[Rfam]
RNA: Small nucleolar RNA R64/Z200 family
Organism: Zizania palustris
RNA sequence: CCAUUGCGGUGAAGAAUUAUGAACAAAUUUCGCAUGUCAGACUUCGGAGAUGCUUAGGCAUCCGUGAGAAGGCAUUUCAUACGACUGAGCAAUGU
Dot-bracket structure: .((((((.........................................((((......))))..........................)))))).